[Rfam]
RNA sequence: CCAGGUUGAGGUAGUAGGUUGUAUAGUUGAGAAUUACACCCGGGAGAUAACUGUACAACCUCCUAGCUUUCCCUGA
Numbered sequence: 001c002c003a004g005g006u007u008g009a010g011g012u013a014g015u016a017g018g019u020u021g022u023a024u025a026g027u028u029g030a031g032a033a034u035u036a037c038a039c040c041c042g043g044g045a046g047a048u049a050a051c052u053g054u055a056c057a058a059c060c061u062c063c064u065a066g067c068u069u070u071c072c073c074u075g076a
Stems, first nucleotide, its partner, number of pairs: 002075004008069003012065003016061012039046001
let-7 microRNA precursor family: a 76-nucleotide RNA sequence from Collichthys lucidus. NCBI's taxonomy places the organism under Eukaryota, Metazoa, Vertebrata, Sciaenidae, Collichthys. The literature on the family includes a 2001 paper in Nat Rev Genet by Rougvie, "Control of developmental timing in animals". Clan: let-7 microRNA precursor clan. Rfam describes the family as follows. This family represents the microRNAs (miRNA) let-7 and mir-98. let-7 was identified from a study of developmental timing in C. elegans, and was later shown to be part of a much larger class of non-coding RNAs termed miRNAs.